The family of this 201-nucleotide RNA from Cynoglossus semilaevis is "Small nucleolar RNA SNORA74". The literature on the family includes a 1997 paper in Genes Dev by Ganot et al., "The family of box ACA small nucleolar RNAs is defined by an evolutionarily conserved secondary structure and ubiquitous sequence elements essential for RNA accumulation". About the family: U19 belongs to the H/ACA class of snoRNAs. snoRNAs bind a number of proteins (including dyskerin, Gar1p and Nop10p in the case of the H/ACA class) to form snoRNP complexes. This class are thought to guide the sites of modification of uridines to pseudouridines by forming direct base pairing interactions with substrate RNAs. Pairs were carried over by alignment from the consensus structure, which was predicted with PFOLD. A search with the family's covariance model found it, with a score of 83 bits. The source organism's lineage runs through Eukaryota, Opisthokonta, Deuterostomia, Actinopteri and Cynoglossus.
RNA sequence: UCCAGCUCUCAGUCAGCUGACCAGGCUCAGCGUGCUUGGCCCAGUGUUACAGUGCUGGUAGACAAAGUCUCUGCUCUUGGUGUCAGUUCAGUAGGUUCUGUUUUAGAGUCUGCUGCUGCUGUGCCGUUGCAGAGCGUGGCUUAACGAGAGUGGCCUGUCCCGUUCUGCUGUCGGGAUGAGCCUAGUACAGGGCCACACAUU
Numbered sequence: 001u002c003c004a005g006c007u008c009u010c011a012g013u014c015a016g017c018u019g020a021c022c023a024g025g026c027u028c029a030g031c032g033u034g035c036u037u038g039g040c041c042c043a044g045u046g047u048u049a050c051a052g053u054g055c056u057g058g059u060a061g062a063c064a065a066a067g068u069c070u071c072u073g074c075u076c077u078u079g080g081u082g083u084c085a086g087u088u089c090a091g092u093a094g095g096u097u098c099u100g101u102u103u104u105a106g107a108g109u110c111u112g113c114u115g116c117u118g119c120u121g122u123g124c125c126g127u128u129g130c131a132g133a134g135c136g137u138g139g140c141u142u143a144a145c146g147a148g149a150g151u152g153g154c155c156u157g158u159c160c161c162g163u164u165c166u167g168c169u170g171u172c173g174g175g176a177u178g179a180g181c182c183u184a185g186u187a188c189a190g191g192g193c194c195a196c197a198c199a200u201u
Stems, first nucleotide, its partner, number of pairs: 002058005008052002012050002016045004022038005069134006079125005084118003089115003093111007136196007152182003156178007